[Rfam]
RNA sequence: ACUAUCCUUGUUUCGGGGUAGCGCUACUGGCCAAUGAACAAACAAUGAGGGCAGUACUGCUAACACCUGCACAACACACCUGCAUCAACUGAGCUUUGCUUUACUUUGGUGCAAUUUUUGGAAAA
Numbered sequence: 001a002c003u004a005u006c007c008u009u010g011u012u013u014c015g016g017g018g019u020a021g022c023g024c025u026a027c028u029g030g031c032c033a034a035u036g037a038a039c040a041a042a043c044a045a046u047g048a049g050g051g052c053a054g055u056a057c058u059g060c061u062a063a064c065a066c067c068u069g070c071a072c073a074a075c076a077c078a079c080c081u082g083c084a085u086c087a088a089c090u091g092a093g094c095u096u097u098g099c100u101u102u103a104c105u106u107u108g109g110u111g112c113a114a115u116u117u118u119u120g121g122a123a124a125a
Base pairs, nucleotide, nucleotide: 006018007017008016009015021060022059023058026055027054028053029052031050032049038046082112083111084110085109086108087107091101092100093099094098
This 125-nucleotide RNA from Prolemur simus belongs to the Rfam family "U4atac minor spliceosomal RNA". The literature on the family includes a 2002 paper in Nucleic Acids Res by Shukla et al., "Domains of human U4atac snRNA required for U12-dependent splicing in vivo". Taxonomically the source falls in Prolemur (Eukaryota, Gnathostomata, Boreoeutheria, Strepsirrhini). Rfam describes the family as follows. U4atac is an essential component of the minor U12-type spliceosome complex which is required for removal of the rarer class of eukaryotic introns (AT-AC, U12-type). Rfam links the family to the GO terms U4atac snRNP, mRNA 5'-splice site recognition and spliceosomal tri-snRNP complex assembly.